Notes:
The record is a 33-nucleotide RNA, which matches "DUF805b RNA" in Rfam. Clan: DUF805 clan. Rfam classes the family as a cis-regulatory element.

[Rfam]
RNA sequence: AAUGGGGAUUCCGAAAACCACAGAGAGUAGGAA
Numbered sequence: 001a002a003u004g005g006g007g008a009u010u011c012c013g014a015a016a017a018c019c020a021c022a023g024a025g026a027g028u029a030g031g032a033a
Base pairs, nucleotide, nucleotide: 003020004019005018010032011031012030